MIR168 microRNA precursor family: a 148-nucleotide sequence from Cucurbita maxima. NCBI's taxonomy places the organism under Eukaryota, Euphyllophyta, eudicotyledons, Cucurbitaceae, Cucurbita. The base pairs follow the family's consensus structure, which was predicted with WAR. The family has 10 seed sequences and 518 matches in Rfam 15.1.
Nucleotides: 148
Base pairs, nucleotide, nucleotide: 013135014134017131018130019129020128023125024124025123026122027121028120029119030118031117032116034114035113036112037111038110040108041107
Number, partner (000 for none) and nucleotide at each position: 001000u002000c003000a004000u005000c006000g007000g008000c009000g010000g011000u012000c013135u014134c015000u016000a017131a018130u019129u020128c021000g022000c023125u024124u025123g026122g027121u028120g029119c030118a031117g032116g033000u034114c035113g036112g037111g038110a039000a040108c041107u042000g043000c044000u045000u046000c047000g048000c049000u050000u051000c052000u053000u054000g055000a056000u057000u058000u059000u060000g061000u062000g063000c064000u065000c066000u067000u068000a069000a070000a071000u072000u073000u074000c075000c076000u077000c078000u079000g080000c081000u082000g083000u084000a085000a086000g087000a088000g089000g090000a091000a092000a093000u094000a095000a096000u097000c098000g099000c100000g101000c102000g103000a104000a105000u106000u107041g108040g109000a110038u111037c112036c113035c114034g115000c116032c117031u118030u119029g120028c121027a122026u123025c124024a125023a126000c127000u128020g129019a130018a131017u132000c133000c134014g135013a136000g137000a138000c139000u140000g141000c142000g143000a144000u145000g146000a147000a148000g